[Rfam]
RNA sequence: UGGCUAUGAAACUUUAAGCUGUGUCGGAAUGCAGUUUAUCGUGGAGCCUGCCCGUGGGUUGUGCGAAAACCACAAACCGAAUAGGUCGUCAGACUGAACGAAAACGCAAAAA
Numbered sequence: 001u002g003g004c005u006a007u008g009a010a011a012c013u014u015u016a017a018g019c020u021g022u023g024u025c026g027g028a029a030u031g032c033a034g035u036u037u038a039u040c041g042u043g044g045a046g047c048c049u050g051c052c053c054g055u056g057g058g059u060u061g062u063g064c065g066a067a068a069a070c071c072a073c074a075a076a077c078c079g080a081a082u083a084g085g086u087c088g089u090c091a092g093a094c095u096g097a098a099c100g101a102a103a104a105c106g107c108a109a110a111a112a
Base pairs, nucleotide, nucleotide: 002048003047004046011042012041015038016037017036018035019034020033021032022031024080025079026078027077063107064106065105084095085094086093087092
A member of the RNA family "drum RNA", 112 nucleotides long.
About the family: Firmicutes, Bacteroidetes (1 example), Proteobacteria (2 examples), Spirochaetes (2 examples).